[Rfam]
MIR1520 microRNA precursor family: a 96-nucleotide sequence from Glycine max.
RNA sequence: UUAACAAAAAAUAUUGACUGUCACGUGUCAUUAUGUAAUUGGUCGUUGACGAUCAUGUGUCUUUAAUUAGAUAAUGACACGUGACAAUCAACACUU
Numbered sequence: 001u002u003a004a005c006a007a008a009a010a011a012u013a014u015u016g017a018c019u020g021u022c023a024c025g026u027g028u029c030a031u032u033a034u035g036u037a038a039u040u041g042g043u044c045g046u047u048g049a050c051g052a053u054c055a056u057g058u059g060u061c062u063u064u065a066a067u068u069a070g071a072u073a074a075u076g077a078c079a080c081g082u083g084a085c086a087a088u089c090a091a092c093a094c095u096u
Stems, first nucleotide, its partner, number of pairs: 020085004025080002029076003033072002036069001038067005

It scores 55 bits against the family's covariance model.
NCBI's taxonomy places the organism under Eukaryota, Streptophyta, Gunneridae, Fabales, Glycine subgen. Soja.
The family is grouped with related families in Rfam's "MIR1520 microRNA precursor clan".